RNA sequence: UAAUGAAUAUAGAAAAAGAGCUGGACGACAAUCCAGCUCCAGCGUAGAACCGUUAAAAAGACGGUGGCUCGUAUUACGAAUUUAAUC
Dot-bracket structure: .....................((((......)))).............((((((.....))))))......................
Numbered sequence: 001u002a003a004u005g006a007a008u009a010u011a012g013a014a015a016a017a018g019a020g021c022u023g024g025a026c027g028a029c030a031a032u033c034c035a036g037c038u039c040c041a042g043c044g045u046a047g048a049a050c051c052g053u054u055a056a057a058a059a060g061a062c063g064g065u066g067g068c069u070c071g072u073a074u075u076a077c078g079a080a081u082u083u084a085a086u087c
Stems, first nucleotide, its partner, number of pairs: 022035004049065006